A member of the RNA family "c-di-AMP riboswitch aptamer (ydaO/yuaA leader)", 168 nucleotides long.
RNA sequence: CGCAGUCAUCCGCCAACACACUCGCCGGCAGGAGCGGGGGACCCAGGUAAGUCGCCGCACCGGUCACCACCGGAGCGGCUCGGGGUGAAGCCGUGCCCGUCAGGGCCCGGCCGGGCACCUCCCCGCCCGAACCCGACAGCUCACCUCGCAGGCGUAAGGAGAGGGACU
Numbered sequence: 001c002g003c004a005g006u007c008a009u010c011c012g013c014c015a016a017c018a019c020a021c022u023c024g025c026c027g028g029c030a031g032g033a034g035c036g037g038g039g040g041a042c043c044c045a046g047g048u049a050a051g052u053c054g055c056c057g058c059a060c061c062g063g064u065c066a067c068c069a070c071c072g073g074a075g076c077g078g079c080u081c082g083g084g085g086u087g088a089a090g091c092c093g094u095g096c097c098c099g100u101c102a103g104g105g106c107c108c109g110g111c112c113g114g115g116c117a118c119c120u121c122c123c124c125g126c127c128c129g130a131a132c133c134c135g136a137c138a139g140c141u142c143a144c145c146u147c148g149c150a151g152g153c154g155u156a157a158g159g160a161g162a163g164g165g166a167c168u
Base pairs, nucleotide, nucleotide: 011154012153013152014151019032034149035148036147037146038145039144044082083134084133085132091110092109093108113128114127115126116125